[Rfam]
RNA sequence: AACUUUCUGAAUCUGUGUCAAUAUUUUGUCAGAAAUCAAUCCACAUUCACGGAUAAGACUUUCAAGAUGAGUGAAGUG
Numbered sequence: 001a002a003c004u005u006u007c008u009g010a011a012u013c014u015g016u017g018u019c020a021a022u023a024u025u026u027u028g029u030c031a032g033a034a035a036u037c038a039a040u041c042c043a044c045a046u047u048c049a050c051g052g053a054u055a056a057g058a059c060u061u062u063c064a065a066g067a068u069g070a071g072u073g074a075a076g077u078g
Stems, first nucleotide, its partner, number of pairs: 002077005008071001011068003016064002020061002024058007

The family of this 78-nucleotide RNA from Schistosoma haematobium is "mir-3492 microRNA precursor family". A search with the family's covariance model found it, with a score of 52 bits. Taxonomically the source falls in Schistosoma (Eukaryota, Protostomia, Neodermata, Digenea).